[Rfam]
RNA: mir-339 microRNA precursor family
Organism: Pan troglodytes
RNA sequence: CGGGGCGGCCGCUCUCCCUGUCCUCCAGGAGCUCACGUGUGCCUGCCUGUGAGCGCCUCGACGACAGAGCCAGCGCCUGCCCCAGUGUCUGC
Numbered sequence: 001c002g003g004g005g006c007g008g009c010c011g012c013u014c015u016c017c018c019u020g021u022c023c024u025c026c027a028g029g030a031g032c033u034c035a036c037g038u039g040u041g042c043c044u045g046c047c048u049g050u051g052a053g054c055g056c057c058u059c060g061a062c063g064a065c066a067g068a069g070c071c072a073g074c075g076c077c078u079g080c081c082c083c084a085g086u087g088u089c090u091g092c
Stems, first nucleotide, its partner, number of pairs: 005080004010075004016069001018067003022063001024061002027058003031054006037046003